Background
This 61-nucleotide RNA belongs to the Rfam family "Streptococcus sRNA SpF59 (ldcC RNA)". By type it is a small RNA. The family's consensus secondary structure was predicted with mfold. Rfam's curators put it in the seed alignment.

RNA sequence: UGACCAUUUUGCACUGUUAAAGCAAAAUUGAGGCUACACGGACGGCCGGGUCAAAUGCCGA
Numbered sequence: 001u002g003a004c005c006a007u008u009u010u011g012c013a014c015u016g017u018u019a020a021a022g023c024a025a026a027a028u029u030g031a032g033g034c035u036a037c038a039c040g041g042a043c044g045g046c047c048g049g050g051u052c053a054a055a056u057g058c059c060g061a
Stems, first nucleotide, its partner, number of pairs: 001053005006028006